[Rfam]
RNA: Bacillus sRNA ncr1241
RNA sequence: CACAUGGCUUUCUAGUAUUCCCCCCCUUUUUUGGACAGAGCGUGAAGCGUUCUGUCCUUUUUU
Numbered sequence: 001c002a003c004a005u006g007g008c009u010u011u012c013u014a015g016u017a018u019u020c021c022c023c024c025c026c027u028u029u030u031u032u033g034g035a036c037a038g039a040g041c042g043u044g045a046a047g048c049g050u051u052c053u054g055u056c057c058u059u060u061u062u063u
Base pairs, nucleotide, nucleotide: 004027006025007024033057034056035055036054037053038052039051040050041049042048